[Rfam]
A member of the RNA family "Ribosomal protein L20 leader" from Tepidibacter thalassicus, 126 nucleotides long. Rfam's curators write: This family is a putative r-protein leader autoregulatory structure found in B. subtilis and other low-GC Gram-positive bacteria. The base pairs follow the family's consensus structure, which was predicted with CMfinder.

RNA sequence: GAAAUAAAGCAGAAGUUAUCCGCUUCUCACCUUACUCCGAUGGUUGUAGGGUUAAUGACUGGAUUUUGAAGUCUUAGUUGUGGUAUGUGUACGGAUAGCUUAUGCUAUCCGUUUUUUAUUUUUAAU
Numbered sequence: 001g002a003a004a005u006a007a008a009g010c011a012g013a014a015g016u017u018a019u020c021c022g023c024u025u026c027u028c029a030c031c032u033u034a035c036u037c038c039g040a041u042g043g044u045u046g047u048a049g050g051g052u053u054a055a056u057g058a059c060u061g062g063a064u065u066u067u068g069a070a071g072u073c074u075u076a077g078u079u080g081u082g083g084u085a086u087g088u089g090u091a092c093g094g095a096u097a098g099c100u101u102a103u104g105c106u107a108u109c110c111g112u113u114u115u116u117u118a119u120u121u122u123u124a125a126u
Stems, first nucleotide, its partner, number of pairs: 011027006029052003034047002037043002091112009